Record summary:
The family of this 119-nucleotide sequence from Oreochromis niloticus is "Small nucleolar RNA SNORA26". Its family is annotated with RNA processing and nucleolus in the Gene Ontology. NCBI's taxonomy places the organism under Eukaryota, Craniata, Teleostei, Osteoglossocephalai, Oreochromis. A reference for the family is Huttenhofer et al. (2001), "RNomics: an experimental approach that identifies 201 candidates for novel, small, non-messenger RNAs in mouse", EMBO J.
[Rfam]
RNA sequence: UUGCCCACUCUGGACUACAAGUGUCCUUGGUGUCUAACACAGGGGGGUAGAGUAGUUCUCUCAUAAACCUGUAGUGAAGGCAUGCAUCCUCACUGCGGAUCCUGUCGGGAGAAACAAUC
Numbered sequence: 001u002u003g004c005c006c007a008c009u010c011u012g013g014a015c016u017a018c019a020a021g022u023g024u025c026c027u028u029g030g031u032g033u034c035u036a037a038c039a040c041a042g043g044g045g046g047g048u049a050g051a052g053u054a055g056u057u058c059u060c061u062c063a064u065a066a067a068c069c070u071g072u073a074g075u076g077a078a079g080g081c082a083u084g085c086a087u088c089c090u091c092a093c094u095g096c097g098g099a100u101c102c103u104g105u106c107g108g109g110a111g112a113a114a115c116a117a118u119c
Stems, first nucleotide, its partner, number of pairs: 002049005008043002016036002019033001056113001058111005069098007078090003082087001
Dot-bracket structure: .(((((.((......((.(.............).)).....)).)))))......(.(((((......(((((((..(((.(....)))).)))))))........))))).)......